The record is a 66-nucleotide RNA from Halovenus carboxidivorans, which matches "S15-Halobacteria ribosomal protein leader" in Rfam.
Its Rfam clan is "Ribosomal Protein S15 Leader clan".
The family's consensus secondary structure is taken from published work.
Taxonomically the source falls in Halovenus (Archaea, Methanobacteriati, Halobacteriales, Haloarculaceae).
By type it is a cis-regulatory leader.
RNA sequence: GACGGGAACGCACGACCGCAAAUCUGACUCGCCAUCCGCUUGGAUGGCUCGGGAUUGUGGGAGUGU
Number, nucleotide and partner (000 for none) at each position: 001g000002a000003c000004g000005g000006g000007a000008a000009c000010g066011c065012a064013c063014g000015a000016c060017c059018g058019c057020a056021a055022a000023u000024c053025u052026g000027a000028c000029u000030c000031g048032c047033c046034a045035u044036c043037c042038g000039c000040u000041u000042g037043g036044a035045u034046g033047g032048c031049u000050c000051g000052g025053g024054a000055u021056u020057g019058u018059g017060g016061g000062a000063g013064u012065g011066u010